[Rfam]
A member of the RNA family "Actinobacteria sRNA Ms_IGR-5" from Nocardioides cavernaquae, 182 nucleotides long. By type it is a small RNA.
RNA sequence: ACACGGGAAAGGAGGUGAUCGACGCAAUGCAUGCUUCGAGGACACGUGAGGUGGCUGCGCGCUAGCAGCCGAUGCUCUGACUCCGGUCGGCAUCGCCUCUUGCGAAUCCACCGCAGUCCCCGCGACCCGCAGGCCCCGGCUGUUGUCCUGGCCGGACAACACAGGCCUGCGGGUCGUUCCCA
Numbered sequence: 001a002c003a004c005g006g007g008a009a010a011g012g013a014g015g016u017g018a019u020c021g022a023c024g025c026a027a028u029g030c031a032u033g034c035u036u037c038g039a040g041g042a043c044a045c046g047u048g049a050g051g052u053g054g055c056u057g058c059g060c061g062c063u064a065g066c067a068g069c070c071g072a073u074g075c076u077c078u079g080a081c082u083c084c085g086g087u088c089g090g091c092a093u094c095g096c097c098u099c100u101u102g103c104g105a106a107u108c109c110a111c112c113g114c115a116g117u118c119c120c121c122g123c124g125a126c127c128c129g130c131a132g133g134c135c136c137c138g139g140c141u142g143u144u145g146u147c148c149u150g151g152c153c154g155g156a157c158a159a160c161a162c163a164g165g166c167c168u169g170c171g172g173g174u175c176g177u178u179c180c181c182a
Base pairs, nucleotide, nucleotide: 015058016057017056019054060104061103062102064100065099068097070095071094073092074091075090123176124175125174126173127172128171129170130169131168132167133166134165135164136155137154138153139152140151141150
It scores 101 bits against the family's covariance model.